[Rfam]
RNA sequence: CGGGGGGUACGCAACUGGCGAUAGGCGCGGUAGUCCCAACGACUCCGCCGCUGACGUGGAAACCGGCAGGGGUUUGCCCCCUGUGAACCACUGGGGAGCGUGCCGCACGGGCUGCAAGGCCCGAUGUGUUCCGCCGUUCGCCUGGGCAGCCCUU
Numbered sequence: 001c002g003g004g005g006g007g008u009a010c011g012c013a014a015c016u017g018g019c020g021a022u023a024g025g026c027g028c029g030g031u032a033g034u035c036c037c038a039a040c041g042a043c044u045c046c047g048c049c050g051c052u053g054a055c056g057u058g059g060a061a062a063c064c065g066g067c068a069g070g071g072g073u074u075u076g077c078c079c080c081c082u083g084u085g086a087a088c089c090a091c092u093g094g095g096g097a098g099c100g101u102g103c104c105g106c107a108c109g110g111g112c113u114g115c116a117a118g119g120c121c122c123g124a125u126g127u128g129u130u131c132c133g134c135c136g137u138u139c140g141c142c143u144g145g146g147c148a149g150c151c152c153u154u
Stems, first nucleotide, its partner, number of pairs: 004106001006104007015095002017142005056091004131149001133147003
Rfam assigns this 154-nucleotide sequence from Paracidovorax valerianellae to the family "ZMP/ZTP riboswitch aptamer (pfl RNA motif)". Taxonomically the source falls in Paracidovorax (Bacteria, Pseudomonadati, Betaproteobacteria, Comamonadaceae).